The record is a 115-nucleotide RNA sequence from Acuticoccus sediminis, which matches "ALIL pseudoknot" in Rfam. The match comes from Rfam's covariance-model search (100 bits).
RNA sequence: GGCUUAUUUCGCGCAGGCGGAGCUCGACCCGGUCGAAGACAUGAUCGCGUUCAUCGACGAUCAUCGCAGUGUGUAUGGGGUCGAGCCGAUCUGCCGAGUGCUGCCGAUCGCCCCA
Numbered sequence: 001g002g003c004u005u006a007u008u009u010c011g012c013g014c015a016g017g018c019g020g021a022g023c024u025c026g027a028c029c030c031g032g033u034c035g036a037a038g039a040c041a042u043g044a045u046c047g048c049g050u051u052c053a054u055c056g057a058c059g060a061u062c063a064u065c066g067c068a069g070u071g072u073g074u075a076u077g078g079g080g081u082c083g084a085g086c087c088g089a090u091c092u093g094c095c096g097a098g099u100g101c102u103g104c105c106g107a108u109c110g111c112c113c114c115a
Stems, first nucleotide, its partner, number of pairs: 016030001019029002076115005087110002090107002093104002096101001

The family's RNA type in Rfam is cis-regulatory element.